[Rfam]
RNA sequence: CUCCCCGAAAUGCAUUUAGGUGCAGCCUCGGGCUUAGUACCGCGGAGGUAGAGCGACCGAUAGGAUGCGAGGGCUUCACCGCCUAUCAAGUCCUGACGAACUCCGAAUGCCGCGGCACGAUACCCGGGAGUGAGGGCGCGGGUGCUAAGGUCCGCGUCCGAGAGAGGAACAACUCAGACCACCGGCCAAGGCCCCCAAAUGCGGGCUAAGUUGAAGACCAUAACGAGGUGGGACCGCCUGGACAGCUAGGAUGUUGGCUUGGAAGCAGCCAUUCAUUUAAAGAGUGCGUAACAGCUCACUAGUCGAGUGGUCCCGCAUGGAUAAUAAUCGGGCAUAAGUCCGCUGCCGAAGCCGUGGAAUGCAGCUUUGAGCUGCAUUGGUAGGGGAGCAUUCCGCAGGCCGUCGAAGGCUUGGCGUGAGCCAUGCUGGAGGUACCGGAAAAGCAAAU
Dot-bracket structure: ((((((....(((((....))))).(((((((...(((.((((((.....(((....((..((((...((((((......)))).))...))))..))..)).).....)))))).))..).)))))).)...((((((((((......))))))))))....(((......)))...((((.(((...(((......(.((((((.................((..((((((((((.......(((((.(((..(((.........)))...)))(...)(...((......)).).)))))...)))))))))).))..................))))))))))...)))))))((((((((.....))))))))....))))))(.(((((...(((......(((.((((....)))).)))...)))..)))))..).....
Bacterial large subunit ribosomal RNA: a 448-nucleotide part of an RNA from Barnesiella sp. WM24. The match comes from Rfam's covariance-model search (2753 bits). The source organism's lineage runs through Bacteria, Pseudomonadati, Bacteroidia, Bacteroidales and Barnesiella.